[Rfam]
This 52-nucleotide sequence from Salvelinus namaycush belongs to the Rfam family "U7 small nuclear RNA". For this family Rfam cites "U7 snRNAs: a computational survey" (Marz et al., Genomics Proteomics Bioinformatics, 2007). NCBI's taxonomy places the organism under Eukaryota, Deuterostomia, Craniata, Salmonidae, Salvelinus. It scores 39 bits against the family's covariance model.
RNA sequence: AAGAGGCUCUUGUAGUAUUUCUCCAGUAGGUUUUCUGAAGGAGAAAGCCUUA
Numbered sequence: 001a002a003g004a005g006g007c008u009c010u011u012g013u014a015g016u017a018u019u020u021c022u023c024c025a026g027u028a029g030g031u032u033u034u035c036u037g038a039a040g041g042a043g044a045a046a047g048c049c050u051u052a
Stems, first nucleotide, its partner, number of pairs: 029049008